[Rfam]
The record is a 198-nucleotide RNA from Candidatus Hoaglandella endobia, which matches "Yersinia sRNA 276" in Rfam. For this family Rfam cites "Transcriptomic profiling of Yersinia pseudotuberculosis reveals reprogramming of the Crp regulon by temperature and uncovers Crp as a master regulator of small RNAs" (Nuss et al., PLoS Genet, 2015). The match comes from Rfam's covariance-model search (111 bits). Lineage of the source: Bacteria > Gammaproteobacteria > Enterobacterales > Enterobacteriaceae > Candidatus Hoaglandella.

RNA sequence: UACCGACAUUAAAGAUUCGUUAUCAGAGCCUUUUCCGACCGCUAAGUAGGCGUUCAUUCCCAGUUCUUUCAUUUGUUGCUCGCCGAUAAUACAGGUCUUAGUAUUAUGUUUUUUGUAGUUAUCUGCCAACUGCCUCGCUUGCAAGGCUAAAUAAGUGGAGUUACAAAUAUUAGGGGGCAUAUUGCCUAAAUCUUUGGA
Number, nucleotide and partner (000 for none) at each position: 001u000002a000003c000004c000005g192006a191007c000008a000009u000010u000011a000012a032013a031014g030015a000016u028017u027018c026019g000020u000021u000022a000023u000024c000025a000026g018027a017028g016029c000030c014031u013032u012033u000034u000035c041036c000037g000038a000039c000040c000041g035042c000043u000044a000045a000046g000047u000048a000049g000050g059051c000052g000053u000054u000055c000056a000057u000058u000059c050060c000061c000062a077063g076064u075065u000066c000067u000068u000069u000070c000071a000072u000073u000074u000075g064076u063077u062078g138079c137080u000081c000082g134083c000084c132085g131086a000087u129088a000089a000090u000091a000092c125093a124094g123095g122096u121097c000098u000099u115100a114101g113102u000103a111104u000105u000106a000107u000108g000109u000110u000111u103112u000113u101114u100115g099116u000117a000118g000119u000120u000121a096122u095123c094124u093125g092126c000127c000128a000129a087130c000131u085132g084133c000134c082135u000136c000137g079138c078139u166140u165141g164142c000143a162144a161145g000146g000147c158148u157149a000150a000151a000152u000153a000154a000155g000156u000157g148158g147159a000160g000161u144162u143163a000164c141165a140166a139167a000168u000169a000170u189171u188172a187173g186174g185175g000176g000177g000178c000179a000180u000181a000182u000183u000184g000185c174186c173187u172188a171189a170190a000191u006192c005193u000194u000195u000196g000197g000198a000